[Rfam]
RNA sequence: UGGAACGGAAGGCCGAAGCUUUCUCAGAAAGCGCGGGGGAACCAAUCAUUGGGGUGAAGCCGUCGGCAACGGCGCCGGGUGGUUGCUCUUUGACCCGAACCCGUCAGCUAACCUCGCAGGCCGGACAAGGAGAGGAU
Numbered sequence: 001u002g003g004a005a006c007g008g009a010a011g012g013c014c015g016a017a018g019c020u021u022u023c024u025c026a027g028a029a030a031g032c033g034c035g036g037g038g039g040a041a042c043c044a045a046u047c048a049u050u051g052g053g054g055u056g057a058a059g060c061c062g063u064c065g066g067c068a069a070c071g072g073c074g075c076c077g078g079g080u081g082g083u084u085g086c087u088c089u090u091u092g093a094c095c096c097g098a099a100c101c102c103g104u105c106a107g108c109u110a111a112c113c114u115c116g117c118a119g120g121c122c123g124g125a126c127a128a129g130g131a132g133a134g135g136a137u
Stems, first nucleotide, its partner, number of pairs: 011122004018032006033117006043051002052102003060074001063071001077096004
Record summary
Rfam assigns this 137-nucleotide RNA from Paenibacillus flagellatus to the family "c-di-AMP riboswitch aptamer (ydaO/yuaA leader)". Its family is annotated with cyclic-di-AMP binding and regulation of gene expression in the Gene Ontology. It scores 87 bits against the family's covariance model. NCBI's taxonomy places the organism under Bacteria, Bacillota, Bacilli, Caryophanales, Paenibacillus.